[Rfam]
RNA sequence: GGUCACCUCUCGAGGGGGCUAUCACAUAGGCGGGGCAACCCGUCGUUUGCUAGACGGAAGACAGAAA
Numbered sequence: 001g002g003u004c005a006c007c008u009c010u011c012g013a014g015g016g017g018g019c020u021a022u023c024a025c026a027u028a029g030g031c032g033g034g035g036c037a038a039c040c041c042g043u044c045g046u047u048u049g050c051u052a053g054a055c056g057g058a059a060g061a062c063a064g065a066a067a
Base pairs, nucleotide, nucleotide: 001020002019003018004017006016007015008014029044030043031042032041033040034039
RNA: L2-Alphaproteobacteria ribosomal protein leader